skipping-rope RNA: a 101-nucleotide RNA sequence. It is annotated as a small RNA.

[Rfam]
RNA sequence: GGGAUUAACGAGGACGGAACGGGCUGCUGUCGCCCUCCGACAAAGCCCAUGCGCAGGGUUCGGAGUUAGGAGAUGUGGGAAUGGUCGCCCCACCUAAUCCC
Numbered sequence: 001g002g003g004a005u006u007a008a009c010g011a012g013g014a015c016g017g018a019a020c021g022g023g024c025u026g027c028u029g030u031c032g033c034c035c036u037c038c039g040a041c042a043a044a045g046c047c048c049a050u051g052c053g054c055a056g057g058g059u060u061c062g063g064a065g066u067u068a069g070g071a072g073a074u075g076u077g078g079g080a081a082u083g084g085u086c087g088c089c090c091c092a093c094c095u096a097a098u099c100c101c
Stems, first nucleotide, its partner, number of pairs: 001101007010094001013031005022086004033070001035065006075093005